[Rfam]
The family of this 416-nucleotide part of an RNA from Absidia repens is "Archaeal large subunit ribosomal RNA".
It scores 1521 bits against the family's covariance model.
Pairs were carried over by alignment from the consensus structure, which is taken from published work.
The family is grouped with related families in Rfam's "LSU clan".
Lineage of the source: Eukaryota > Fungi > Mucorales > Cunninghamellaceae > Absidia.

RNA sequence: UCGAUGAAGAACGCAGCAAAUCGCGAUAUGUAGUGUGAUCUGCCUAUAGUGAAUCAUCAAAUCUUUGAACGCAUCUUGCACCCUUGGGUAUUCCUGAGGGUACGCCUGUUUCAGUAUCAUUUUAACUUCAUAUCCUUUCGAGGGUUUGAAAAAAUCACUACUGGCCAUUGAGUACUUUAUUGUGCUUCUCGGCUGAAAUAAUCUUAUGGUUUCCCUUAUGACUGGGGGCAAUUACCCUUUGGUAGAAUUUAUUUUUUACAAAAGAAAAAAUUGAAGCCAGUCUAGAAGCUAUACCUUUAACCCAAAAACCUUGAUCUGAAAUCAGGCGGGAUUACCCGCUGAACUUAAGCAUAUCAAUAAGCGGAGGAAAAGAAAAUAACAAUGAUUCCCCUAGUAACGGCGAGUGAACAGGGAAA
Numbered sequence: 001u002c003g004a005u006g007a008a009g010a011a012c013g014c015a016g017c018a019a020a021u022c023g024c025g026a027u028a029u030g031u032a033g034u035g036u037g038a039u040c041u042g043c044c045u046a047u048a049g050u051g052a053a054u055c056a057u058c059a060a061a062u063c064u065u066u067g068a069a070c071g072c073a074u075c076u077u078g079c080a081c082c083c084u085u086g087g088g089u090a091u092u093c094c095u096g097a098g099g100g101u102a103c104g105c106c107u108g109u110u111u112c113a114g115u116a117u118c119a120u121u122u123u124a125a126c127u128u129c130a131u132a133u134c135c136u137u138u139c140g141a142g143g144g145u146u147u148g149a150a151a152a153a154a155u156c157a158c159u160a161c162u163g164g165c166c167a168u169u170g171a172g173u174a175c176u177u178u179a180u181u182g183u184g185c186u187u188c189u190c191g192g193c194u195g196a197a198a199u200a201a202u203c204u205u206a207u208g209g210u211u212u213c214c215c216u217u218a219u220g221a222c223u224g225g226g227g228g229c230a231a232u233u234a235c236c237c238u239u240u241g242g243u244a245g246a247a248u249u250u251a252u253u254u255u256u257u258a259c260a261a262a263a264g265a266a267a268a269a270a271u272u273g274a275a276g277c278c279a280g281u282c283u284a285g286a287a288g289c290u291a292u293a294c295c296u297u298u299a300a301c302c303c304a305a306a307a308a309c310c311u312u313g314a315u316c317u318g319a320a321a322u323c324a325g326g327c328g329g330g331a332u333u334a335c336c337c338g339c340u341g342a343a344c345u346u347a348a349g350c351a352u353a354u355c356a357a358u359a360a361g362c363g364g365a366g367g368a369a370a371a372g373a374a375a376a377u378a379a380c381a382a383u384g385a386u387u388c389c390c391c392u393a394g395u396a397a398c399g400g401c402g403a404g405u406g407a408a409c410a411g412g413g414a415a416a
Stems, first nucleotide, its partner, number of pairs: 009066003012025003031060001033057003071079003103328005335366001336364005346353002376383002387414004397405002